[Rfam]
RNA: Bacterial RNase P class A
Organism: Rhodocytophaga rosea
RNA sequence: AAAGCAAGCCGUCUUAUCGCUGUCCUGCCUAAAGGCGGGAGAGAGGAAAGUCCGGGCAACACAGAGCAGCGUACUUCCUAACGGGAAGGACUUCCGGAAACGGGGGGACAGACAGGGCCACAGAAAAUUACCGCCAGGGGCGUAGGUGAAUGAGUAAUCGAAUAAUUGAGUGAGUUUUAAUUAAUCGCUCAUUCACACAAUCACUCAUUCACCUAAGCUCCAGGUAAGGGUGAAAAGGUGCGGUAAGAGCGCACCGCCUGGCUGGCGACAGACAGGGCAUAGGUAAACCUUACGCGUUGAAAGACCAAAUAAGCUGGCGAGCCUGUAACAGGGCUGAAGGGCGGCUCGUCCGGUGCCAGCGGGUAGGUUGAUGGAGCCACUCCGUGAGGGCUGGCCUAGAUAAAUGAUAAGAACUUUCGCAGGAAAGUACAGAACCCGGCUUACAGGCUUGCUUUUUAU
Numbered sequence: 001a002a003a004g005c006a007a008g009c010c011g012u013c014u015u016a017u018c019g020c021u022g023u024c025c026u027g028c029c030u031a032a033a034g035g036c037g038g039g040a041g042a043g044a045g046g047a048a049a050g051u052c053c054g055g056g057c058a059a060c061a062c063a064g065a066g067c068a069g070c071g072u073a074c075u076u077c078c079u080a081a082c083g084g085g086a087a088g089g090a091c092u093u094c095c096g097g098a099a100a101c102g103g104g105g106g107g108a109c110a111g112a113c114a115g116g117g118c119c120a121c122a123g124a125a126a127a128u129u130a131c132c133g134c135c136a137g138g139g140g141c142g143u144a145g146g147u148g149a150a151u152g153a154g155u156a157a158u159c160g161a162a163u164a165a166u167u168g169a170g171u172g173a174g175u176u177u178u179a180a181u182u183a184a185u186c187g188c189u190c191a192u193u194c195a196c197a198c199a200a201u202c203a204c205u206c207a208u209u210c211a212c213c214u215a216a217g218c219u220c221c222a223g224g225u226a227a228g229g230g231u232g233a234a235a236a237g238g239u240g241c242g243g244u245a246a247g248a249g250c251g252c253a254c255c256g257c258c259u260g261g262c263u264g265g266c267g268a269c270a271g272a273c274a275g276g277g278c279a280u281a282g283g284u285a286a287a288c289c290u291u292a293c294g295c296g297u298u299g300a301a302a303g304a305c306c307a308a309a310u311a312a313g314c315u316g317g318c319g320a321g322c323c324u325g326u327a328a329c330a331g332g333g334c335u336g337a338a339g340g341g342c343g344g345c346u347c348g349u350c351c352g353g354u355g356c357c358a359g360c361g362g363g364u365a366g367g368u369u370g371a372u373g374g375a376g377c378c379a380c381u382c383c384g385u386g387a388g389g390g391c392u393g394g395c396c397u398a399g400a401u402a403a404a405u406g407a408u409a410a411g412a413a414c415u416u417u418c419g420c421a422g423g424a425a426a427g428u429a430c431a432g433a434a435c436c437c438g439g440c441u442u443a444c445a446g447g448c449u450u451g452c453u454u455u456u457u458a459u
Stems, first nucleotide, its partner, number of pairs: 001455010011444001012412007020043002023040006048442003052439005057299004064347004069295005074088005089109001091106006110290002115288001117284003131229002133225003137221005237255006256278001257276004262271003303369004313360006339351004376395004381390003